Rfam assigns this 217-nucleotide RNA sequence from Pan paniscus to the family "Epstein-Barr virus nuclear antigen (EBNA) IRES". Rfam links the family to the GO term ribosome binding. Pairs were carried over by alignment from the consensus structure, which was predicted with PFOLD. On this family, see Isaksson et al., Oncogene 2003: "Epstein-Barr virus U leader exon contains an internal ribosome entry site". Rfam's curators write: This family represents an Epstein-Barr virus internal ribosome entry site (IRES) which is found in the U leader exon in the 5' UTR of the Epstein-Barr nuclear antigen 1 (EBNA1) gene. The EBNA IRES allows EBNA1 translation to occur under situations where initiation from the 5' cap structure and ribosome scanning is reduced. It is thought that the EBNA IRES is necessary for the regulation of latent gene expression.
RNA sequence: UCAGCUGAUCGUUGUUGUUAUUCUUCAAUUUCUGCAGGUAACUUAGGAAGCGUUUCUUGAGCUUCCCUGGGAUAAGCGUCUGCGAGAGCUGAUUCUGCAGGCCGGAGAGUAGCCGCAGCGCGUCCUCCGGCGCCUGGCCCGAGACCGUCGCGUCGUAGACCGCCAGCAGACCGGGGAGAAGAUUAACCGCGGCGGCCGUCUCCUUUAAGGUGCUGUG
Number, nucleotide and partner (000 for none) at each position: 001u020002c000003a018004g000005c000006u000007g000008a000009u000010c000011g000012u000013u000014g000015u000016u000017g000018u003019u000020a001021u000022u000023c000024u000025u000026c000027a000028a000029u000030u000031u000032c000033u000034g000035c000036a000037g000038g000039u000040a000041a000042c000043u000044u000045a000046g000047g000048a000049a000050g193051c192052g000053u000054u000055u000056c000057u000058u000059g127060a126061g125062c000063u000064u085065c084066c000067c082068u000069g000070g000071g000072a000073u000074a000075a000076g000077c000078g000079u000080c000081u000082g067083c000084g065085a064086g000087a000088g000089c000090u000091g124092a123093u000094u000095c000096u000097g121098c120099a000100g000101g000102c000103c118104g000105g000106a000107g000108a000109g000110u000111a000112g000113c000114c000115g000116c000117a000118g103119c000120g098121c097122g000123u092124c091125c061126u060127c059128c000129g188130g187131c000132g000133c000134c181135u180136g000137g000138c000139c158140c000141g156142a000143g154144a153145c152146c000147g000148u000149c000150g000151c000152g145153u144154c143155g000156u141157a000158g139159a000160c000161c000162g000163c175164c174165a000166g172167c000168a000169g000170a000171c000172c166173g000174g164175g163176g000177a000178g000179a000180a135181g134182a000183u000184u000185a000186a000187c130188c129189g000190c000191g000192g051193c050194g000195g000196c000197c000198g000199u000200c000201u000202c000203c000204u000205u000206u000207a000208a000209g000210g000211u000212g000213c000214u000215g000216u000217g000